The family of this 78-nucleotide RNA from Oryzias latipes is "mir-103/107 microRNA precursor family". The literature on the family includes a 2002 paper in Genes Dev by Mourelatos et al., "miRNPs: a novel class of ribonucleoproteins containing numerous microRNAs". The family has 93 seed sequences and 1,982 matches in Rfam 15.1. NCBI's taxonomy places the organism under Eukaryota, Metazoa, Bilateria, Deuterostomia, Oryzias. This family consists of the mammalian microRNA (miRNA) precursors mir-103 and mir107. Animal miRNAs are transcribed as ~70nt precursors and subsequently processed by the Dicer enzyme to give a ~22nt product. In this case the mature sequence comes from the 3' arm of the precursor. The base pairs follow the family's consensus structure, which was predicted with RNAalifold. It is one of the family's seed sequences.
RNA sequence: CUGCGCUUUUAGCCUCUUUACAGUGCUGCCUUGUCUUCUCGCGUUCAAGCAGCAUUGUACAGGGCUAUGACGGCGCAG
Numbered sequence: 001c002u003g004c005g006c007u008u009u010u011a012g013c014c015u016c017u018u019u020a021c022a023g024u025g026c027u028g029c030c031u032u033g034u035c036u037u038c039u040c041g042c043g044u045u046c047a048a049g050c051a052g053c054a055u056u057g058u059a060c061a062g063g064g065c066u067a068u069g070a071c072g073g074c075g076c077a078g
Base pairs, nucleotide, nucleotide: 014064015063016062017061019059020058021057022056023055024054025053026052027051028050030049031048032047033046
Dot-bracket structure: .............((((.((((((((((.((((............)))))))))))))).))))..............